The family of this 59-nucleotide sequence is "Mu-gpT-DE RNA". The family's RNA type in Rfam is small RNA.
RNA sequence: UCCUGACAGAUGUUCCACAUGGAACAAUCUGACACUAGCCACGACAGGAGAACAUAAUG
Number, nucleotide and partner (000 for none) at each position: 001u000002c048003c047004u046005g045006a000007c031008a030009g029010a028011u027012g000013u000014u000015c000016c000017a000018c000019a000020u000021g000022g000023a000024a000025c000026a000027a011028u010029c009030u008031g007032a000033c000034a000035c000036u000037a000038g000039c000040c000041a000042c000043g000044a000045c005046a004047g003048g002049a000050g000051a000052a000053c000054a000055u000056a000057a000058u000059g000